[Rfam]
RNA sequence: AGUGGUCCAAUGGCAGUGUGGUUUAUCAACAUUAGUGUUACUACAGCUGAUAUAUAACCCCCCACUGCUAAAUUUGACUGGCUUAAA
Numbered sequence: 001a002g003u004g005g006u007c008c009a010a011u012g013g014c015a016g017u018g019u020g021g022u023u024u025a026u027c028a029a030c031a032u033u034a035g036u037g038u039u040a041c042u043a044c045a046g047c048u049g050a051u052a053u054a055u056a057a058c059c060c061c062c063c064a065c066u067g068c069u070a071a072a073u074u075u076g077a078c079u080g081g082c083u084u085a086a087a
Stems, first nucleotide, its partner, number of pairs: 001083002003080005009075002015066004020061001024052003028048001